[Rfam]
RNA sequence: CCGCACUAGAUGGGGAGGUAGCGGUGCCCUGUAACCCGCAAUCCGCUGUAGCGGGGUUGAAUUCCUAUCAGAGGUGCGUAACAUGUGGGGUCAGGUCCGUGCAAGUGGUGUUGAGAGCCGGGUCCUGCGCAACGGAAGCCCAUGAACCUGGUCAGGUCCGGAAGGAAGCAGCCAUAAGUGGUAUCUUUCGUGUGCCGCAGGGGUGCCUGGUUUGAGCUAACUACACGGGGCCGCCCGGAUGUACGUAUCGAAGAUAGGUGUGCGG
Numbered sequence: 001c002c003g004c005a006c007u008a009g010a011u012g013g014g015g016a017g018g019u020a021g022c023g024g025u026g027c028c029c030u031g032u033a034a035c036c037c038g039c040a041a042u043c044c045g046c047u048g049u050a051g052c053g054g055g056g057u058u059g060a061a062u063u064c065c066u067a068u069c070a071g072a073g074g075u076g077c078g079u080a081a082c083a084u085g086u087g088g089g090g091u092c093a094g095g096u097c098c099g100u101g102c103a104a105g106u107g108g109u110g111u112u113g114a115g116a117g118c119c120g121g122g123u124c125c126u127g128c129g130c131a132a133c134g135g136a137a138g139c140c141c142a143u144g145a146a147c148c149u150g151g152u153c154a155g156g157u158c159c160g161g162a163a164g165g166a167a168g169c170a171g172c173c174a175u176a177a178g179u180g181g182u183a184u185c186u187u188u189c190g191u192g193u194g195c196c197g198c199a200g201g202g203g204u205g206c207c208u209g210g211u212u213u214g215a216g217c218u219a220a221c222u223a224c225a226c227g228g229g230g231c232c233g234c235c236c237g238g239a240u241g242u243a244c245g246u247a248u249c250g251a252a253g254a255u256a257g258g259u260g261u262g263c264g265g
Base pairs, nucleotide, nucleotide: 001265002264003263004262005261006260009058010057011056012030013029014028015027017025019023035055036054037053038052039051064258065257066256067255068254069253073249074248075247076246077245081242082241083240084239086237087236088235089234094231097228098227099226100225101224105221106220107218108217109216115213116212117211118210119209120208121207122206123205124201125200126199127198128197129196130192131191133190134189135188136187137186140181141180142179143178149174150173151172152171157166158165159164
RNA: Bacterial large signal recognition particle RNA
Organism: Aneurinibacillus soli